[Rfam]
RNA sequence: AAUGAUACUUCCAUGAAAGUGGCCCACGAGGAGAGGGGAGAAUGCACACCCACGUUUGAGAAAGAAUGUGGGGCGGCUUCU
Numbered sequence: 001a002a003u004g005a006u007a008c009u010u011c012c013a014u015g016a017a018a019g020u021g022g023c024c025c026a027c028g029a030g031g032a033g034a035g036g037g038g039a040g041a042a043u044g045c046a047c048a049c050c051c052a053c054g055u056u057u058g059a060g061a062a063a064g065a066a067u068g069u070g071g072g073g074c075g076g077c078u079u080c081u
Stems, first nucleotide, its partner, number of pairs: 011022004023038003039081004044077002049073001052069005
Record summary
dinG RNA: an 81-nucleotide sequence. It is one of the family's seed sequences.